About this RNA: The record is a 121-nucleotide RNA from Anaerotignum lactatifermentans, which matches "FMN riboswitch aptamer (RFN element)" in Rfam. Taxonomically the source falls in Anaerotignum lactatifermentans (Bacteria, Bacillati, Bacillota, Clostridia). Rfam describes the family as follows. The RFN element is a highly conserved domain that is found frequently in the 5'-untranslated regions of prokaryotic mRNAs that encode for flavin mononucleotide (FMN) biosynthesis and transport proteins. The family has 146 seed sequences and 6,230 matches in Rfam 15.1.
RNA sequence: AAGUGUCUUCGGGGCAGGGUGAAAUUCCCUACCGGCGGUGAUAGCCCGCGAGCCGCUUUUGGUGGCAGGAUUCGUUGAAAUUACGAAGCCGACAGUAUAGUCUGGAUGAGAGAAGAUAUGC
Numbered sequence: 001a002a003g004u005g006u007c008u009u010c011g012g013g014g015c016a017g018g019g020u021g022a023a024a025u026u027c028c029c030u031a032c033c034g035g036c037g038g039u040g041a042u043a044g045c046c047c048g049c050g051a052g053c054c055g056c057u058u059u060u061g062g063u064g065g066c067a068g069g070a071u072u073c074g075u076u077g078a079a080a081u082u083a084c085g086a087a088g089c090c091g092a093c094a095g096u097a098u099a100g101u102c103u104g105g106a107u108g109a110g111a112g113a114a115g116a117u118a119u120g121c
Base pairs, nucleotide, nucleotide: 003119004118005117006116007115008114009113010112017029018028019027031101032100033091034090035049036048037047038046044089045088054065071087072086073085074084075083093104094103095102